RNA sequence: ACGGUGUUCCGCUGUAAUUUAUGAAAUGACUUUGCAAGAGCAUCUG
Numbered sequence: 001a002c003g004g005u006g007u008u009c010c011g012c013u014g015u016a017a018u019u020u021a022u023g024a025a026a027u028g029a030c031u032u033u034g035c036a037a038g039a040g041c042a043u044c045u046g
Stems, first nucleotide, its partner, number of pairs: 003044007013036002016032002